This 74-nucleotide RNA sequence from Bombyx mori belongs to the Rfam family "mir-2807 microRNA precursor family". Pairs were carried over by alignment from the consensus structure, which was predicted with RNAalifold. Lineage of the source: Eukaryota > Dicondylia > Pterygota > Neolepidoptera > Bombyx. Gene Ontology terms of the family: RISC complex and miRNA-mediated post-transcriptional gene silencing. The match comes from Rfam's covariance-model search (61 bits).

[Rfam]
RNA sequence: AAUACACAAAUUCGUAUGGAUUUGGAACGUUUGCCGCUAGGGGCGCUGUUCCAACUGCAUACAAAGUUGAGUUA
Numbered sequence: 001a002a003u004a005c006a007c008a009a010a011u012u013c014g015u016a017u018g019g020a021u022u023u024g025g026a027a028c029g030u031u032u033g034c035c036g037c038u039a040g041g042g043g044c045g046c047u048g049u050u051c052c053a054a055c056u057g058c059a060u061a062c063a064a065a066g067u068u069g070a071g072u073u074a
Base pairs, nucleotide, nucleotide: 008068009067011065012064014062015061016060018058020056022054023053024052025051026050027049028048029047034042035041